[Rfam]
Rhodo-rpoB RNA: an 89-nucleotide RNA from Yoonia ponticola. The family's RNA type in Rfam is cis-regulatory element. Lineage of the source: Bacteria > Pseudomonadota > Alphaproteobacteria > Rhodobacterales > Yoonia. The family's consensus secondary structure is taken from published work.
RNA sequence: GUUUCGGGAGAGAUGUUUGGGAAACAUCUCGGGUAUUGAAACGGUCCUGCCGCAAAUCGGACGCAUUCUGGUCGCCCAGCCAAGAUGCG
Numbered sequence: 001g002u003u004u005c006g007g008g009a010g011a012g013a014u015g016u017u018u019g020g021g022a023a024a025c026a027u028c029u030c031g032g033g034u035a036u037u038g039a040a041a042c043g044g045u046c047c048u049g050c051c052g053c054a055a056a057u058c059g060g061a062c063g064c065a066u067u068c069u070g071g072u073c074g075c076c077c078a079g080c081c082a083a084g085a086u087g088c089g
Stems, first nucleotide, its partner, number of pairs: 001042005010030007062089006069082003